The record is a 90-nucleotide sequence from Ornithorhynchus anatinus, which matches "let-7 microRNA precursor family" in Rfam. The family has 64 seed sequences and 8,694 matches in Rfam 15.1. Rfam describes the family as follows. This family represents the microRNAs (miRNA) let-7 and mir-98. let-7 was identified from a study of developmental timing in C. elegans, and was later shown to be part of a much larger class of non-coding RNAs termed miRNAs. Rfam links the family to the GO terms RISC complex and miRNA-mediated post-transcriptional gene silencing.
[Rfam]
RNA sequence: CUGGGAUGAGGUAGUAAGUUGUAUUGUUGUGGGGUAGGGAUUUCUUUUGCCCCAAUUAGCGAUAACUAUACAAUUUACUACUUUCCCCAG
Numbered sequence: 001c002u003g004g005g006a007u008g009a010g011g012u013a014g015u016a017a018g019u020u021g022u023a024u025u026g027u028u029g030u031g032g033g034g035u036a037g038g039g040a041u042u043u044c045u046u047u048u049g050c051c052c053c054a055a056u057u058a059g060c061g062a063u064a065a066c067u068a069u070a071c072a073a074u075u076u077a078c079u080a081c082u083u084u085c086c087c088c089a090g
Base pairs, nucleotide, nucleotide: 001090002089003088004087005086008084009083010082011081012080013079014078015077016076017075018074019073020072021071022070023069024068026066027065032052033051034050035049036048037047038046

For this family Rfam cites "Control of developmental timing in animals" (Rougvie, Nat Rev Genet, 2001). Taxonomically the source falls in Ornithorhynchus (Eukaryota, Opisthokonta, Deuterostomia, Ornithorhynchidae).